[Rfam]
Nucleotides: 138
Stems, first nucleotide, its partner, number of pairs: 001138004045101009
Number, partner (000 for none) and nucleotide at each position: 001138g002137u003136u004135u005000a006000g007000u008000g009000a010000u011000g012000a013000u014000a015000u016000c017000c018000c019000a020000u021000g022000c023000g024000u025000g026000u027000c028000a029000u030000c031000u032000g033000a034000u035000g036000c037000c038000c039000a040000c041000g042000u043000c044000u045101c046100u047099c048098u049097g050096c051095u052094u053093c054000u055000g056000g057000c058000c059000u060000g061000c062000a063000c064000u065000g066000c067000c068000u069000g070000c071000g072000u073000c074000c075000u076000g077000c078000g079000g080000g081000u082000u083000g084000g085000g086000u087000u088000u089000g090000g091000c092000u093053g094052g095051a096050g097049c098048a099047g100046a101045g102000g103000a104000u105000u106000c107000u108000g109000g110000g111000a112000g113000a114000u115000g116000a117000u118000c119000u120000g121000a122000c123000c124000u125000g126000u127000u128000u129000g130000u131000c132000u133000g134000a135004a136003a137002a138001c

The family of this 138-nucleotide RNA from Xenopus laevis is "Small nucleolar RNA SNORD10".
The family has 22 seed sequences and 433 matches in Rfam 15.1.
Lineage of the source: Eukaryota > Deuterostomia > Chordata > Pipidae > Xenopus.
By type it is a C/D-box small nucleolar RNA.
A reference for the family is Huttenhofer et al. (2001), "RNomics: an experimental approach that identifies 201 candidates for novel, small, non-messenger RNAs in mouse", EMBO J.